[Rfam]
RNA sequence: UCUGGUGAUGCUGUAGCAGCACGGAAUGGUUUGUGGGUUAUUGUGAGAUGCAGGCCAUGCCGUGCUGCCGCAGUAAUGCCCGA
Numbered sequence: 001u002c003u004g005g006u007g008a009u010g011c012u013g014u015a016g017c018a019g020c021a022c023g024g025a026a027u028g029g030u031u032u033g034u035g036g037g038u039u040a041u042u043g044u045g046a047g048a049u050g051c052a053g054g055c056c057a058u059g060c061c062g063u064g065c066u067g068c069c070g071c072a073g074u075a076a077u078g079c080c081c082g083a
Stems, first nucleotide, its partner, number of pairs: 001083002004080003013071002016068009026058010

The family of this 83-nucleotide RNA from Oryzias latipes is "mir-15 microRNA precursor family".
On this family, see Lagos-Quintana et al., Science 2001: "Identification of novel genes coding for small expressed RNAs".
The organism belongs to Oryzias, within Eukaryota.
Rfam's curators write: This family represents the related mir-15a and mir-15b sequences. In humans miR-15a and miR-16 are clustered within 0.5 kb at 13q14. This region has been shown to be deleted in more than half of B cell chronic lymphocytic leukaemias (CLL). Both miR-15a and miR-16 are deleted or down-regulated in more than two thirds of CLL cases.
The base pairs follow the family's consensus structure, which was predicted with RNAalifold.
Clan: mir-15 clan.
Its family is annotated with miRNA-mediated post-transcriptional gene silencing and RISC complex in the Gene Ontology.